[Rfam]
RNA sequence: CUUUUACCAAUCUGGAUGCAUUCCUGAGUCAUAUGAUAAAAUAGAAAACAUUUAUGACUAGAAGUGCAUUCAGCUUGGUCCUUAA
Numbered sequence: 001c002u003u004u005u006a007c008c009a010a011u012c013u014g015g016a017u018g019c020a021u022u023c024c025u026g027a028g029u030c031a032u033a034u035g036a037u038a039a040a041a042u043a044g045a046a047a048a049c050a051u052u053u054a055u056g057a058c059u060a061g062a063a064g065u066g067c068a069u070u071c072a073g074c075u076u077g078g079u080c081c082u083u084a085a
Base pairs, nucleotide, nucleotide: 006079007078008077009076012073013072014071015070016069017068018067019066020065022064027059028058029057030056031055032054033053
The family of this 85-nucleotide RNA from Caenorhabditis angaria is "mir-44 microRNA precursor family". It scores 63 bits against the family's covariance model. The organism belongs to Caenorhabditis, within Eukaryota.